The record is a 365-nucleotide RNA sequence from Aquella oligotrophica, which matches "Bacterial RNase P class A" in Rfam. The match comes from Rfam's covariance-model search (304 bits). Pairs were carried over by alignment from the consensus structure, which is taken from published work. NCBI's taxonomy places the organism under Bacteria, Pseudomonadota, Betaproteobacteria, Neisseriales, Aquella. From the family's description: Ribonuclease P (RNase P) is a ubiquitous endoribonuclease, found in archaea, bacteria and eukarya as well as chloroplasts and mitochondria. Its best characterised activity is the generation of mature 5'-ends of tRNAs by cleaving the 5'-leader elements of precursor-tRNAs. Cellular RNase Ps are ribonucleoproteins. RNA from bacterial RNase Ps retains its catalytic activity in the absence of the protein subunit, i.e. it is a ribozyme. Isolated eukaryotic and archaeal RNase P RNA has not been shown to retain its catalytic function, but is still essential for the catalytic activity of the holoenzyme. Although the archaeal and eukaryotic holoenzyme s have a much greater protein content than the bacterial ones, the RNA cores from all the three lineages are homologous -- helices corresponding to P1, P2, P3, P4, and P10/11 are common to all cellular RNase P RNAs. Yet, there is considerable sequence variation, particularly among the eukaryotic RNAs. Identified in Yersinia as Ysr151/RnpB.
RNA sequence: AAAACUAAUCUGGCAAUCGCGGUUAAGUAAUUAAUCGAGGAAAGUCCGGACACCUCAGGAUUAAAGUGCUGGGUAACUCCCAGGAACUGCGUGCAGUUACGGAAAGUGGCACAGAAAAUAUACCGCAGACAGUUUACUCUGACUGUAAGGGUGAAAAGGUGCGGUAAGAGCGCACCGCGUAGCUAGUGAUAGCUAUGGCAGGCAAAACCCCACUUGGUGCAAGACCAAAUAGGCGCAAUUUGUGUUAAUCCUGUACGUUUAAUUGCGCGGGUAGGUUGCUAGAGCCUUCUGGUAACAGCUGGCCCAGAUGAAUGAUUGCCUAGGUUUUACCGAUACAGAAUCCGGCUUAUAGAUUAGUUUUCCCA
Number, nucleotide and partner (000 for none) at each position: 001a361002a360003a359004a358005c357006u356007a355008a354009u353010c352011u000012g320013g319014c318015a317016a316017u315018c314019g000020c037021g036022g035023u034024u033025a032026a031027g000028u000029a000030a000031u026032u025033a024034a023035u022036c021037g020038a000039g000040g000041a000042a348043a347044g346045u000046c345047c344048g343049g342050a341051c219052a218053c217054c216055u000056c000057a000058g000059g256060a000061u000062u253063a000064a215065a214066g213067u212068g211069c083070u082071g081072g080073g079074u000075a000076a000077c000078u000079c073080c072081c071082a070083g069084g100085a098086a097087c096088u095089g000090c000091g000092u000093g000094c000095a088096g087097u086098u085099a000100c084101g210102g209103a000104a000105a000106g208107u207108g000109g203110c202111a000112c000113a000114g000115a000116a000117a000118a000119u000120a000121u000122a000123c150124c149125g146126c145127a144128g143129a000130c141131a140132g139133u000134u000135u000136a000137c000138u000139c132140u131141g130142a000143c128144u127145g126146u125147a000148a000149g124150g123151g000152u000153g000154a000155a000156a000157a000158g176159g175160u174161g173162c172163g171164g000165u000166a000167a000168g000169a000170g000171c163172g162173c161174a160175c159176c158177g199178c197179g196180u195181a194182g193183c192184u191185a190186g000187u000188g000189a000190u185191a184192g183193c182194u181195a180196u179197g178198g000199c177200a000201g000202g110203c109204a000205a000206a000207a107208c106209c102210c101211c068212a067213c066214u065215u064216g054217g053218u052219g051220c000221a000222a000223g277224a276225c275226c274227a000228a000229a000230u000231a000232g000233g268234c267235g266236c265237a264238a263239u000240u000241u000242g000243u000244g000245u000246u000247a000248a260249u000250c000251c257252u000253g062254u000255a000256c059257g251258u000259u000260u248261a000262a000263u238264u237265g236266c235267g234268c233269g000270g000271g000272u000273a000274g226275g225276u224277u223278g000279c000280u000281a000282g000283a000284g303285c302286c301287u000288u000289c298290u297291g296292g000293u000294a000295a000296c291297a290298g289299c000300u000301g286302g285303c284304c000305c000306a000307g000308a000309u000310g000311a000312a000313u000314g018315a017316u016317u015318g014319c013320c012321u000322a000323g000324g000325u000326u000327u000328u000329a000330c000331c000332g000333a000334u000335a000336c000337a000338g000339a000340a000341u050342c049343c048344g047345g046346c044347u043348u042349a000350u000351a000352g010353a009354u008355u007356a006357g005358u004359u003360u002361u001362c000363c000364c000365a000